A member of the RNA family "mir-877 microRNA precursor family" from Hordeum vulgare, 85 nucleotides long. On this family, see Linsen et al., BMC Genomics 2010: "Small RNA expression and strain specificity in the rat". It scores 48 bits against the family's covariance model.

RNA sequence: GAGGAGAAGGAGGAGAAGGAGGAGGAGGAGAAGGACUAGAAGGUCCUUGGCCUUCUAAUCCUCCUCCUCCUCCUCCUUCUCCUUC
Numbered sequence: 001g002a003g004g005a006g007a008a009g010g011a012g013g014a015g016a017a018g019g020a021g022g023a024g025g026a027g028g029a030g031a032a033g034g035a036c037u038a039g040a041a042g043g044u045c046c047u048u049g050g051c052c053u054u055c056u057a058a059u060c061c062u063c064c065u066c067c068u069c070c071u072c073c074u075c076c077u078u079c080u081c082c083u084u085c
Base pairs, nucleotide, nucleotide: 004081005080006079007078008077009076012075013074015072018070019069020068021067022066023065024064025063026062027061029059037057038056039055040054041053042052043051045050